[Rfam]
RNA sequence: GAAGUUUUCCUCGGCAGUUAACUGCAGCAGGUUCUUUAAAAUUUCGGCAGUUAACUGUCGAAGGGUAU
Numbered sequence: 001g002a003a004g005u006u007u008u009c010c011u012c013g014g015c016a017g018u019u020a021a022c023u024g025c026a027g028c029a030g031g032u033u034c035u036u037u038a039a040a041a042u043u044u045c046g047g048c049a050g051u052u053a054a055c056u057g058u059c060g061a062a063g064g065g066u067a068u
Stems, first nucleotide, its partner, number of pairs: 008064002011061015
Shown here is a 68-nucleotide RNA from Medicago truncatula, a member of the family "MIR2629 microRNA precursor family". The family's consensus secondary structure was predicted with RNAalifold. A search with the family's covariance model found it, with a score of 60 bits.